[Rfam]
RNA sequence: UGUCUCCUCCAACUCCGUAACAAGAAUUGGAUUUAACCCGCCACCAUGGCGGGUUUUUUUUU
Numbered sequence: 001u002g003u004c005u006c007c008u009c010c011a012a013c014u015c016c017g018u019a020a021c022a023a024g025a026a027u028u029g030g031a032u033u034u035a036a037c038c039c040g041c042c043a044c045c046a047u048g049g050c051g052g053g054u055u056u057u058u059u060u061u062u
Stems, first nucleotide, its partner, number of pairs: 008031005035055008

The family of this 62-nucleotide sequence from Rugamonas brunnea is "Betaproteobacteria toxic small RNA". The family has 51 seed sequences and 951 matches in Rfam 15.1. The literature on the family includes a 2017 paper in Sci Rep by Sass et al., "Identification of small RNAs abundant in Burkholderia cenocepacia biofilms reveal putative regulators with a potential role in carbon and iron metabolism". A search with the family's covariance model found it, with a score of 52 bits. Rfam describes the family as follows. Overexpression in amino aid rich medium attenuates growth, suggesting role in repressing amino acid intake and metabolism. Pairs were carried over by alignment from the consensus structure, which was predicted with WAR.